RNA sequence: GGAAGUGAAGAAAAGGCAUAUAAUUGUUUUGUGACAUCCAGUCUGAUCUGCUUCUGCAGAAUUGAGUGAUUUGCCAUGUCCUCUGAUCC
Number, nucleotide and partner (000 for none) at each position: 001g089002g088003a087004a000005g000006u000007g000008a000009a000010g000011a000012a000013a000014a000015g075016g074017c073018a072019u000020a000021u000022a000023a000024u000025u000026g000027u000028u000029u000030u000031g000032u000033g000034a000035c000036a000037u000038c000039c000040a000041g000042u000043c000044u000045g000046a000047u000048c000049u000050g000051c000052u000053u000054c000055u000056g000057c000058a000059g000060a000061a000062u000063u000064g000065a000066g000067u000068g000069a000070u000071u000072u018073g017074c016075c015076a000077u000078g000079u000080c000081c000082u000083c000084u000085g000086a000087u003088c002089c001
RNA: Small nucleolar RNA snoR4a
Organism: Raphanus sativus